FMN riboswitch aptamer (RFN element): a 209-nucleotide RNA sequence from Paenibacillus methanolicus.
Lineage of the source: Bacteria > Bacillota > Bacilli > Caryophanales > Paenibacillus.
Pairs were carried over by alignment from the consensus structure, which is taken from published work.
Its family is annotated with FMN binding in the Gene Ontology.
RNA sequence: GCUUACCUUCGGGGCAGGGUGAAAUUCCCAACCGGCGGUGAUCAAGGCGGUUUCGGCCACGUAUCGCGUAUGCGAGCCGGAGACGAACUUGUCAGUCCGUGACCCGGACAGGCGCGGCGCUUCUCGACUUGCGAGAGCGGCGGCGAAUGGACGGUGGACCCGGUGCGAUUCCGGGACCGACAGUAUAGUCUGGAUGGGAGAAGGAGGCG
Numbered sequence: 001g002c003u004u005a006c007c008u009u010c011g012g013g014g015c016a017g018g019g020u021g022a023a024a025u026u027c028c029c030a031a032c033c034g035g036c037g038g039u040g041a042u043c044a045a046g047g048c049g050g051u052u053u054c055g056g057c058c059a060c061g062u063a064u065c066g067c068g069u070a071u072g073c074g075a076g077c078c079g080g081a082g083a084c085g086a087a088c089u090u091g092u093c094a095g096u097c098c099g100u101g102a103c104c105c106g107g108a109c110a111g112g113c114g115c116g117g118c119g120c121u122u123c124u125c126g127a128c129u130u131g132c133g134a135g136a137g138c139g140g141c142g143g144c145g146a147a148u149g150g151a152c153g154g155u156g157g158a159c160c161c162g163g164u165g166c167g168a169u170u171c172c173g174g175g176a177c178c179g180a181c182a183g184u185a186u187a188g189u190c191u192g193g194a195u196g197g198g199a200g201a202a203g204g205a206g207g208c209g
Stems, first nucleotide, its partner, number of pairs: 003207002006204005017029003031189002033179002035100004104154002159175005181192003